[Rfam]
RNA sequence: UCCCAGUGAUGAAAUCCUUUGCGUCCUACUGUCUGUUUUGGGGCCAGAACCUGCAAAGGUUGAACCCACUGGCACCGGCAGAUGGAAAAGAGGAAGAUCUGCUACAGAAGGAGCCGUCUGAUGGGAC
Numbered sequence: 001u002c003c004c005a006g007u008g009a010u011g012a013a014a015u016c017c018u019u020u021g022c023g024u025c026c027u028a029c030u031g032u033c034u035g036u037u038u039u040g041g042g043g044c045c046a047g048a049a050c051c052u053g054c055a056a057a058g059g060u061u062g063a064a065c066c067c068a069c070u071g072g073c074a075c076c077g078g079c080a081g082a083u084g085g086a087a088a089a090g091a092g093g094a095a096g097a098u099c100u101g102c103u104a105c106a107g108a109a110g111g112a113g114c115c116g117u118c119u120g121a122u123g124g125g126a127c
Stems, first nucleotide, its partner, number of pairs: 001126004